A member of the RNA family "Small nucleolar RNA snoR31/Z110/Z27" from Castanea mollissima, 99 nucleotides long. Rfam's curators write: This family contains several related snoRNAs including R31, Z27 and Z110. It is annotated as a C/D-box small nucleolar RNA. Gene Ontology terms of the family: nucleolus and RNA processing.
RNA sequence: GUCAUCAUGUGAUGAAUAUUGGAAAAAAUCUUAGGACACCUUCCUACACAGGCUCUCAUUAGCUGUGGAUGAGAAUAACUUUUCCAUUCUGAUGAUGAU
Number, nucleotide and partner (000 for none) at each position: 001g099002u098003c097004a096005u095006c094007a093008u000009g000010u000011g000012a000013u000014g000015a000016a000017u000018a000019u000020u000021g000022g000023a000024a000025a000026a000027a000028a000029u000030c000031u000032u000033a000034g000035g000036a000037c000038a000039c000040c000041u000042u000043c000044c052045u051046a000047c000048a000049c000050a000051g045052g044053c000054u000055c000056u000057c000058a000059u000060u000061a000062g000063c000064u000065g000066u000067g000068g000069a000070u000071g000072a000073g000074a000075a000076u000077a000078a000079c000080u000081u000082u000083u000084c000085c000086a000087u000088u000089c000090u000091g000092a000093u007094g006095a005096u004097g003098a002099u001

It scores 53 bits against the family's covariance model. The base pairs follow the family's consensus structure, which was predicted with PFOLD. On this family, see Barneche et al., J Mol Biol 2001: "Identification of 66 box C/D snoRNAs in Arabidopsis thaliana: extensive gene duplications generated multiple isoforms predicting new ribosomal RNA 2'-O-methylation sites".